[Rfam]
RNA sequence: CCUUAGACUGCUAUAGCAGCGCAUCAUGGUUUGCAGUUCUGCACUAAAAGGUGCAAAUCAUUAUUUGCUGCUUUAGAAUUUUAAGG
Numbered sequence: 001c002c003u004u005a006g007a008c009u010g011c012u013a014u015a016g017c018a019g020c021g022c023a024u025c026a027u028g029g030u031u032u033g034c035a036g037u038u039c040u041g042c043a044c045u046a047a048a049a050g051g052u053g054c055a056a057a058u059c060a061u062u063a064u065u066u067g068c069u070g071c072u073u074u075a076g077a078a079u080u081u082u083a084a085g086g
Stems, first nucleotide, its partner, number of pairs: 001086006013074001015072007023064002026061010

Rfam assigns this 86-nucleotide RNA from Anguilla anguilla to the family "mir-15 microRNA precursor family".
A reference for the family is Lagos-Quintana et al. (2001), "Identification of novel genes coding for small expressed RNAs", Science.
The organism belongs to Anguilla, within Eukaryota.
This family represents the related mir-15a and mir-15b sequences. In humans miR-15a and miR-16 are clustered within 0.5 kb at 13q14. This region has been shown to be deleted in more than half of B cell chronic lymphocytic leukaemias (CLL). Both miR-15a and miR-16 are deleted or down-regulated in more than two thirds of CLL cases.